[Rfam]
RNA sequence: ACUACCCUCCGCUUUCGGGGACACGCGAGAGGGCAAGCCUCGGCCAUGCCGAAAAUCAAAUCAAGCACGCGACCGGUAGGCCAUAAGGCCGAAAGCCGCCA
Numbered sequence: 001a002c003u004a005c006c007c008u009c010c011g012c013u014u015u016c017g018g019g020g021a022c023a024c025g026c027g028a029g030a031g032g033g034c035a036a037g038c039c040u041c042g043g044c045c046a047u048g049c050c051g052a053a054a055a056u057c058a059a060a061u062c063a064a065g066c067a068c069g070c071g072a073c074c075g076g077u078a079g080g081c082c083a084u085a086a087g088g089c090c091g092a093a094a095g096c097c098g099c100c101a
Stems, first nucleotide, its partner, number of pairs: 005033005010027003069099003073095001079090003
Annotation:
The record is a 101-nucleotide sequence, which matches "RT-19 RNA" in Rfam. It is annotated as a small RNA.